The family of this 85-nucleotide sequence from Cyprinus carpio is "mir-301 microRNA precursor family". Pairs were carried over by alignment from the consensus structure, which was predicted with WAR. Rfam links the family to the GO terms RISC complex and miRNA-mediated post-transcriptional gene silencing. A search with the family's covariance model found it, with a score of 64 bits.
RNA sequence: UAAGGUCUGCUGCUUUGACGAUGUUGCACUACUGAACCAUCUUCUCAAGCAGUGCAAUAGUAUUGUCAUUGCAUUCGGCUUUCGC
Numbered sequence: 001u002a003a004g005g006u007c008u009g010c011u012g013c014u015u016u017g018a019c020g021a022u023g024u025u026g027c028a029c030u031a032c033u034g035a036a037c038c039a040u041c042u043u044c045u046c047a048a049g050c051a052g053u054g055c056a057a058u059a060g061u062a063u064u065g066u067c068a069u070u071g072c073a074u075u076c077g078g079c080u081u082u083c084g085c
Stems, first nucleotide, its partner, number of pairs: 002082003007077001009075001011073003016068004023058008034042001